A member of the RNA family "BsrC" from Paenibacillus cellulosilyticus, 89 nucleotides long. On this family, see Saito et al., Gene 2008: "Novel small RNA-encoding genes in the intergenic regions of Bacillus subtilis". The family's consensus secondary structure was predicted with CMfinder. The 301 nucleotide sequence from Kouji Nakamura has been trimmed to a highly conserved ~85 nucleotide long core to form this family.

RNA sequence: CUUAACUAAAACAACGAAAGCCCUACCUCUCUUUCGUCCUUGCGGCUCCGAAGACCGCGCCAGUGUGAAUCAGCGAAUGGUGUUAUGGC
Numbered sequence: 001c002u003u004a005a006c007u008a009a010a011a012c013a014a015c016g017a018a019a020g021c022c023c024u025a026c027c028u029c030u031c032u033u034u035c036g037u038c039c040u041u042g043c044g045g046c047u048c049c050g051a052a053g054a055c056c057g058c059g060c061c062a063g064u065g066u067g068a069a070u071c072a073g074c075g076a077a078u079g080g081u082g083u084u085a086u087g088g089c
Stems, first nucleotide, its partner, number of pairs: 034068003039063002041059005047053001